RNA sequence: AGAGUGACGGGGUCCAGGAGGACGCGGCCAAUCUGAGAGUCUUCACGGAGGCUAUGACCAGAUAUUCCGCCCCCCCCGGGGACCCGCCCCAA
Numbered sequence: 001a002g003a004g005u006g007a008c009g010g011g012g013u014c015c016a017g018g019a020g021g022a023c024g025c026g027g028c029c030a031a032u033c034u035g036a037g038a039g040u041c042u043u044c045a046c047g048g049a050g051g052c053u054a055u056g057a058c059c060a061g062a063u064a065u066u067c068c069g070c071c072c073c074c075c076c077c078g079g080g081g082a083c084c085c086g087c088c089c090c091a092a
Base pairs, nucleotide, nucleotide: 006087009084010083013080014079015078017076018075020073021072026071027070028069030066031063032062033061034060035059038053039052040051041050042049043048